Record summary
The record is a 115-nucleotide RNA sequence from Oleiphilus sp. HI0043, which matches "t44 RNA" in Rfam. Pairs were carried over by alignment from the consensus structure, which was predicted with LocARNA. By type it is a small RNA. From the family's description: This family consists of a number of bacterial RNA genes of between 135 and 170 bases in length.
RNA sequence: UCUCGAUUGACUUAAAUCCGCACACGUUUCGACACAUUGAUCUGGGUGCUGUGUUCUGCUUCUGCUACGGUGGUUUUGGUUCAUGGUUGAUUAAUGGGACUCGUGGAGGUCUAAC
Numbered sequence: 001u002c003u004c005g006a007u008u009g010a011c012u013u014a015a016a017u018c019c020g021c022a023c024a025c026g027u028u029u030c031g032a033c034a035c036a037u038u039g040a041u042c043u044g045g046g047u048g049c050u051g052u053g054u055u056c057u058g059c060u061u062c063u064g065c066u067a068c069g070g071u072g073g074u075u076u077u078g079g080u081u082c083a084u085g086g087u088u089g090a091u092u093a094a095u096g097g098g099a100c101u102c103g104u105g106g107a108g109g110u111c112u113a114a115c
Stems, first nucleotide, its partner, number of pairs: 023105004029099002035096008048087005